[Rfam]
RNA sequence: UUCUUAUCUAGAGAGGCAGAGGGACUGGCCCGUUGAUGCCCGGCAACCAUCAGGCAACCGCUUGAAAAGGUGCUAAUUCCUGCAGGAGAGAUCCUGGAAGAUAAGAA
Numbered sequence: 001u002u003c004u005u006a007u008c009u010a011g012a013g014a015g016g017c018a019g020a021g022g023g024a025c026u027g028g029c030c031c032g033u034u035g036a037u038g039c040c041c042g043g044c045a046a047c048c049a050u051c052a053g054g055c056a057a058c059c060g061c062u063u064g065a066a067a068a069g070g071u072g073c074u075a076a077u078u079c080c081u082g083c084a085g086g087a088g089a090g091a092u093c094c095u096g097g098a099a100g101a102u103a104a105g106a107a
Base pairs, nucleotide, nucleotide: 001107002106003105004104005103006102007101008100013041015040016039017038021031022030023029025082027080028079042074043073044072045071047070048069050065051064052063078099083096084095085094086093087092
This 107-nucleotide sequence from Halobacillus andaensis belongs to the Rfam family "SAM riboswitch aptamer (S box leader)". About the family: The SAM riboswitch is found upstream of a number of genes which code for proteins involved in methionine or cysteine biosynthesis in Gram-positive bacteria. NCBI's taxonomy places the organism under Bacteria, Bacilli, Caryophanales, Bacillaceae, Halobacillus. The family's consensus secondary structure is taken from published work. Gene Ontology term of the family: regulation of gene expression.